Record summary:
The record is a 106-nucleotide RNA from Erinaceus europaeus, which matches "mir-223 microRNA precursor family" in Rfam. The source organism's lineage runs through Eukaryota, Opisthokonta, Teleostomi, Erinaceinae and Erinaceus. The literature on the family includes a 2003 paper in Science by Lim et al., "Vertebrate microRNA genes". A search with the family's covariance model found it, with a score of 116 bits.
[Rfam]
RNA sequence: CUCACCUCUUGCAAUGUCACGCUCCGUGUAUUUGACAAGCUGAGUUAGACACUCCAUAUGGAAGAGUGUCAGUUUGUCAAAUACCCCAAGUGCGGCAUAUGCUCAG
Number, nucleotide and partner (000 for none) at each position: 001c000002u000003c000004a000005c000006c000007u000008c000009u000010u000011g000012c000013a000014a000015u000016g000017u000018c000019a000020c092021g091022c090023u089024c000025c000026g086027u000028g084029u083030a082031u081032u080033u079034g078035a077036c076037a075038a074039g073040c072041u071042g000043a000044g000045u000046u000047a000048g070049a069050c068051a067052c000053u065054c064055c000056a000057u000058a000059u000060g000061g000062a000063a000064g054065a053066g000067u051068g050069u049070c048071a041072g040073u039074u038075u037076g036077u035078c034079a033080a032081a031082u030083a029084c028085c000086c026087c000088a000089a023090g022091u021092g020093c000094g000095g000096c000097a000098u000099a000100u000101g000102c000103u000104c000105a000106g000